[Rfam]
RNA sequence: GCCGUCGUCUUAGCGGAGUAGCCUGCUUCGCCGUAUCAGGCGAAGCGUCGUCGUCAACAUAAUUGGCAGACUUGCCAUGGCGUCGGCAGCCGUUUCCGCGGCCUGGCGAGACCUAUGACGUUUCCCUUCUUUCAUGGCGUCGAAUGCGUCGGCCGGAAACUCAACCUGACCCAGACAGCU
Number, nucleotide and partner (000 for none) at each position: 001g000002c000003c000004g000005u000006c000007g000008u000009c000010u000011u000012a000013g000014c000015g000016g000017a000018g000019u000020a000021g000022c000023c000024u000025g046026c045027u044028u043029c042030g000031c000032c000033g000034u000035a000036u000037c000038a000039g000040g000041c000042g029043a028044a027045g026046c025047g087048u086049c085050g084051u000052c082053g081054u080055c079056a078057a000058c000059a000060u000061a000062a000063u000064u077065g076066g075067c074068a073069g000070a000071c000072u000073u068074g067075c066076c065077a064078u056079g055080g054081c053082g052083u000084c050085g049086g048087c047088a180089g179090c178091c000092g176093u175094u174095u000096c000097c000098g000099c000100g000101g000102c000103c000104u000105g000106g000107c000108g000109a000110g000111a000112c000113c000114u000115a000116u000117g000118a000119c000120g000121u000122u000123u000124c000125c000126c000127u000128u000129c000130u000131u000132u000133c000134a000135u000136g000137g000138c000139g000140u000141c000142g000143a000144a000145u000146g000147c000148g000149u000150c000151g000152g000153c000154c000155g000156g000157a000158a000159a000160c000161u000162c000163a000164a000165c000166c000167u000168g000169a000170c000171c000172c000173a000174g094175a093176c092177a000178g090179c089180u088
Rfam assigns this 180-nucleotide sequence from Paraburkholderia solisilvae to the family "Manganese Mn2+ riboswitch aptamer (yybP-ykoY)". Rfam links the family to the GO term manganese ion binding. The match comes from Rfam's covariance-model search (51 bits). Taxonomically the source falls in Paraburkholderia (Bacteria, Pseudomonadota, Burkholderiales, Burkholderiaceae).